[Rfam]
RNA: Potassium channel RNA editing signal
RNA sequence: GUGGGCUACGGGGACAUGAGGCCAGUGACAGUGGGGGGAAAGAUAGUGGGCUCGCUCUGCGCCAUAGCGGGAGUGCUGACCAUCGCGCUGCCGGUGCCUGUCAUCGUGUCCAAC
Numbered sequence: 001g002u003g004g005g006c007u008a009c010g011g012g013g014a015c016a017u018g019a020g021g022c023c024a025g026u027g028a029c030a031g032u033g034g035g036g037g038g039a040a041a042g043a044u045a046g047u048g049g050g051c052u053c054g055c056u057c058u059g060c061g062c063c064a065u066a067g068c069g070g071g072a073g074u075g076c077u078g079a080c081c082a083u084c085g086c087g088c089u090g091c092c093g094g095u096g097c098c099u100g101u102c103a104u105c106g107u108g109u110c111c112a113a114c
Stems, first nucleotide, its partner, number of pairs: 001114002004111002007108005013102004018097001021095002037077002040074001049063003